RNA sequence: UGGCAUGUGGAAAUGCUUGUUCCUAAUUACUUUAGGAGCAGGAAUACAUUUAUAACAUACUACAUUAAAAAAAAAAAAAGCGUUCUCAGGACUGACAACCUUGCAGUAGAAGUUGAGCAAUAAUUUAUUUCUCCUACAUAA
Numbered sequence: 001u002g003g004c005a006u007g008u009g010g011a012a013a014u015g016c017u018u019g020u021u022c023c024u025a026a027u028u029a030c031u032u033u034a035g036g037a038g039c040a041g042g043a044a045u046a047c048a049u050u051u052a053u054a055a056c057a058u059a060c061u062a063c064a065u066u067a068a069a070a071a072a073a074a075a076a077a078a079a080g081c082g083u084u085c086u087c088a089g090g091a092c093u094g095a096c097a098a099c100c101u102u103g104c105a106g107u108a109g110a111a112g113u114u115g116a117g118c119a120a121u122a123a124u125u126u127a128u129u130u131c132u133c134c135u136a137c138a139u140a141a
Stems, first nucleotide, its partner, number of pairs: 003060001005058004016042008080133001082131001091121001096115004101110002